[Rfam]
The record is a 61-nucleotide RNA sequence from Skermanella stibiiresistens, which matches "terC RNA" in Rfam. Rfam classes the family as a cis-regulatory element.

RNA sequence: AUCGGGGUCCGGGCCCCUCUGGCGGACGCUUGAAGAAGCGCCGCGAUGUCGGACCCCUCCA
Numbered sequence: 001a002u003c004g005g006g007g008u009c010c011g012g013g014c015c016c017c018u019c020u021g022g023c024g025g026a027c028g029c030u031u032g033a034a035g036a037a038g039c040g041c042c043g044c045g046a047u048g049u050c051g052g053a054c055c056c057c058u059c060c061a
Stems, first nucleotide, its partner, number of pairs: 006055007022044004027040003
Lineage of the source: Bacteria > Pseudomonadati > Pseudomonadota > Rhodospirillales > Skermanella stibiiresistens. The match comes from Rfam's covariance-model search (59 bits).